[Rfam]
RNA sequence: UAAUCCCUCUACUUGGUAAGGCUUAGCAAGUCGACAAGAUCCCGAGUCAUGGGUUUUGCAUCGUAAGGUAUCGAGUUAAGCGUUGACAGGGGAAGUUAUAGGCCGAGUAUUGAGCUGCGAAAUAAUCGUCAAACGUGCAGACUUUGUUGGGUGAAAGGGGAGGUAAUAUGAUGAGAUACCACGCAACAGGUAAGUUAUCUCGCAAAGCUUCACAGUCAUAGACCU
Number, nucleotide and partner (000 for none) at each position: 001u000002a000003a000004u000005c000006c000007c000008u000009c000010u000011a000012c038013u037014u036015g035016g000017u000018a000019a000020g032021g031022c030023u029024u193025a000026g191027c190028a000029a023030g022031u021032c020033g000034a000035c015036a014037a013038g012039a000040u092041c091042c090043c089044g000045a000046g087047u086048c085049a084050u082051g081052g077053g076054u075055u074056u073057u000058g071059c000060a069061u068062c067063g000064u000065a000066a000067g062068g061069u060070a000071u058072c000073g056074a055075g054076u053077u052078a000079a000080g000081c051082g050083u000084u049085g048086a047087c046088a000089g043090g042091g041092g040093a000094a000095g000096u000097u000098a000099u000100a000101g000102g000103c000104c000105g000106a000107g000108u000109a000110u000111u000112g217113a000114g216115c215116u214117g213118c000119g211120a000121a000122a000123u000124a000125a000126u000127c000128g000129u000130c000131a210132a209133a000134c207135g000136u205137g164138c163139a000140g000141a000142c158143u157144u156145u155146g000147u000148u000149g000150g000151g000152u000153g000154a000155a145156a144157g143158g142159g000160g000161a000162g000163g138164u137165a000166a000167u000168a000169u204170g203171a000172u202173g201174a200175g199176a198177u197178a196179c000180c000181a195182c194183g000184c000185a000186a000187c000188a000189g000190g027191u026192a000193a024194g182195u181196u178197a177198u176199c175200u174201c173202g172203c170204a169205a136206a000207g134208c000209u132210u131211c119212a000213c117214a116215g115216u114217c112218a000219u000220a000221g000222a000223c000224c000225u000

This 225-nucleotide RNA from Pseudoalteromonas sp. NBT06-2 belongs to the Rfam family "Group II catalytic intron D1-D4-6". A search with the family's covariance model found it, with a score of 106 bits. From the family's description: Group II introns are found in rRNA, tRNA and mRNA of organelles in fungi, plants and protists, and also in mRNA in bacteria. Gene Ontology term of the family: Group II intron splicing.